[Rfam]
RNA: Potassium channel RNA editing signal
Organism: Pediculus humanus
RNA sequence: AUAAUAAUUAAAAAUUUUACAGGCCAGUUGGAGUUUGGGGAAAAAUUGUCGGUUCCCUUUGCGCCAUUGCCGGUGUUCUUACCAUUGCGCUUCCCGUGCCUGUUAUUGUCUCCAAU
Numbered sequence: 001a002u003a004a005u006a007a008u009u010a011a012a013a014a015u016u017u018u019a020c021a022g023g024c025c026a027g028u029u030g031g032a033g034u035u036u037g038g039g040g041a042a043a044a045a046u047u048g049u050c051g052g053u054u055c056c057c058u059u060u061g062c063g064c065c066a067u068u069g070c071c072g073g074u075g076u077u078c079u080u081a082c083c084a085u086u087g088c089g090c091u092u093c094c095c096g097u098g099c100c101u102g103u104u105a106u107u108g109u110c111u112c113c114a115a116u
Base pairs, nucleotide, nucleotide: 001116002115009108010107011106013104014103015102020098022097039079040078041077042076051065052064053063